[Rfam]
RNA sequence: GGACUCAGAUGUUGGGUCAUCUGGACCCAGUAUCUGGGUCCGGAUCCUGACCCAGAUGUUGGAUAAUGCGGACCCAGAACCUGGGUAAGGAUCAUAACCCAGAUUCUGGGUCC
Numbered sequence: 001g002g003a004c005u006c007a008g009a010u011g012u013u014g015g016g017u018c019a020u021c022u023g024g025a026c027c028c029a030g031u032a033u034c035u036g037g038g039u040c041c042g043g044a045u046c047c048u049g050a051c052c053c054a055g056a057u058g059u060u061g062g063a064u065a066a067u068g069c070g071g072a073c074c075c076a077g078a079a080c081c082u083g084g085g086u087a088a089g090g091a092u093c094a095u096a097a098c099c100c101a102g103a104u105u106c107u108g109g110g111u112c113c
Base pairs, nucleotide, nucleotide: 001113002112003111004110034077035076036075037074038073039072040071041070042069

About this RNA: Shown here is a 113-nucleotide sequence from Oryzias melastigma, a member of the family "Small nucleolar RNA SNORD10". The match comes from Rfam's covariance-model search (38 bits). On this family, see Huttenhofer et al., EMBO J 2001: "RNomics: an experimental approach that identifies 201 candidates for novel, small, non-messenger RNAs in mouse". By type it is a C/D-box small nucleolar RNA. NCBI's taxonomy places the organism under Eukaryota, Actinopteri, Eurypterygia, Ovalentaria, Oryzias. Rfam links the family to the GO terms nucleolus and RNA processing.